This 95-nucleotide sequence belongs to the Rfam family "G-CSF factor stem-loop destabilising element (SLDE)". Rfam describes the family as follows. This family represents the granulocyte colony-stimulating factor stem-loop destabilising element (G-CSF SLDE). G-CSF is secreted by fibroblasts and endothelial cells in response to the inflammatory mediators interleukin-1 (IL-1) and tumour necrosis factor alpha and by activated macrophages. The synthesis of G-CSF is regulated both transcriptionally and through control of mRNA stability. In unstimulated cells G-CSF mRNA is unstable but becomes stabilised in response to IL-1 or tumour necrosis factor alpha, and also in the case of monocytes and macrophages, in response to lipopolysaccharide.
RNA sequence: CUAAGGGUGCCCACCUGGGGCCUUGGAAGCAUUGGGAAGUCUCCCACGUGGGAGACAAGACAGCCCUGUUUAAUAUUUAAACAGCAGUGUUCCCC
Numbered sequence: 001c002u003a004a005g006g007g008u009g010c011c012c013a014c015c016u017g018g019g020g021c022c023u024u025g026g027a028a029g030c031a032u033u034g035g036g037a038a039g040u041c042u043c044c045c046a047c048g049u050g051g052g053a054g055a056c057a058a059g060a061c062a063g064c065c066c067u068g069u070u071u072a073a074u075a076u077u078u079a080a081a082c083a084g085c086a087g088u089g090u091u092c093c094c095c
Stems, first nucleotide, its partner, number of pairs: 004024005010018002032060002039056007066084008